[Rfam]
RNA sequence: UUAAGAGGGUCAUGAAAGAGAUGCCAACAGCAAAAUCUCUAGUAUCGCUAUGCGUUACGACACUAUCAAAUUGCAGGGAGUUCCUAAUGCUUGUACUACCGCCAGUUCAUCGAAAGAUGGAUCUGGCACCAGGGUAAUGACCUCGGGUAUGGUAAAAACGUACAAGAUGUUGCAAUGGAUAAUCUGCAGCCAACUCCUACGGGCUUUAUAGCUUAUGGAAGCAGCUCAACGACUAAAUGAUAGUGGGCCGAUAUUGGCUUAAGAUAUAGUCUACUCACGGUUUGCAAAAACAGU
Numbered sequence: 001u002u003a004a005g006a007g008g009g010u011c012a013u014g015a016a017a018g019a020g021a022u023g024c025c026a027a028c029a030g031c032a033a034a035a036u037c038u039c040u041a042g043u044a045u046c047g048c049u050a051u052g053c054g055u056u057a058c059g060a061c062a063c064u065a066u067c068a069a070a071u072u073g074c075a076g077g078g079a080g081u082u083c084c085u086a087a088u089g090c091u092u093g094u095a096c097u098a099c100c101g102c103c104a105g106u107u108c109a110u111c112g113a114a115a116g117a118u119g120g121a122u123c124u125g126g127c128a129c130c131a132g133g134g135u136a137a138u139g140a141c142c143u144c145g146g147g148u149a150u151g152g153u154a155a156a157a158a159c160g161u162a163c164a165a166g167a168u169g170u171u172g173c174a175a176u177g178g179a180u181a182a183u184c185u186g187c188a189g190c191c192a193a194c195u196c197c198u199a200c201g202g203g204c205u206u207u208a209u210a211g212c213u214u215a216u217g218g219a220a221g222c223a224g225c226u227c228a229a230c231g232a233c234u235a236a237a238u239g240a241u242a243g244u245g246g247g248c249c250g251a252u253a254u255u256g257g258c259u260u261a262a263g264a265u266a267u268a269g270u271c272u273a274c275u276c277a278c279g280g281u282u283u284g285c286a287a288a289a290a291c292a293g294u
Stems, first nucleotide, its partner, number of pairs: 001006001017038003061245005067239002072188006082179003189225002195219003202213004229272001231271005247258004280291004

Description: The family of this 294-nucleotide RNA sequence from Mollisiaceae sp. DMI_Dod_QoI is "Group I catalytic intron". The family's consensus secondary structure is taken from published work. On this family, see Cate et al., Science 1996: "Crystal structure of a group I ribozyme domain: principles of RNA packing". The match comes from Rfam's covariance-model search (96 bits). Lineage of the source: Eukaryota > Ascomycota > Pezizomycotina > Leotiomycetes > Mollisiaceae.